[Rfam]
RNA sequence: CCGUGCGCACCUGCUGCGGGGAGAUGAAGUGGAUGUGGGUGUCGAGCCCGCCCGCGGUGACGAUGAGCCCUUCGCCGGCGAUCGCCUCAGUGCCGGAGCCGACUUCGAGGCCGGGGGUGACGCCGUCCAUGGUCUGCGGAUUGCCGGCUUUGCCGAUGGCGCUGAUCUUGCCGUUCUUCAGGCCGAUGUCCGCCUUGUAGAUCCCCGUGUAGUCGACGAUGAGCGCGUUGGUGAUGACCGUGUCCGGCGACUCGGCGUCGAGCUGGACGGAGGACUGCCCCAUGCCGUCGCGG
Numbered sequence: 001c002c003g004u005g006c007g008c009a010c011c012u013g014c015u016g017c018g019g020g021g022a023g024a025u026g027a028a029g030u031g032g033a034u035g036u037g038g039g040u041g042u043c044g045a046g047c048c049c050g051c052c053c054g055c056g057g058u059g060a061c062g063a064u065g066a067g068c069c070c071u072u073c074g075c076c077g078g079c080g081a082u083c084g085c086c087u088c089a090g091u092g093c094c095g096g097a098g099c100c101g102a103c104u105u106c107g108a109g110g111c112c113g114g115g116g117g118u119g120a121c122g123c124c125g126u127c128c129a130u131g132g133u134c135u136g137c138g139g140a141u142u143g144c145c146g147g148c149u150u151u152g153c154c155g156a157u158g159g160c161g162c163u164g165a166u167c168u169u170g171c172c173g174u175u176c177u178u179c180a181g182g183c184c185g186a187u188g189u190c191c192g193c194c195u196u197g198u199a200g201a202u203c204c205c206c207g208u209g210u211a212g213u214c215g216a217c218g219a220u221g222a223g224c225g226c227g228u229u230g231g232u233g234a235u236g237a238c239c240g241u242g243u244c245c246g247g248c249g250a251c252u253c254g255g256c257g258u259c260g261a262g263c264u265g266g267a268c269g270g271a272g273g274a275c276u277g278c279c280c281c282a283u284g285c286c287g288u289c290g291c292g293g
Base pairs, nucleotide, nucleotide: 002293004292005291006290007289009288012164013163015161016160017159018076019075021073022072023071031052032051034050035049037048038047040045057069077154078153081150085146090144091143092142093139094138095137098133099132104129109127110126111125113123170279172277173276176273177272178271179270181268183265184262191227192226193225195223196222206215207214229260230259231258236253237252240251241250
Shown here is a 293-nucleotide RNA from Bifidobacterium scardovii, a member of the family "5' ureB small RNA". The family's consensus secondary structure was predicted with mfold. The source organism's lineage runs through Bacteria, Bacillati, Bifidobacteriales, Bifidobacteriaceae and Bifidobacterium.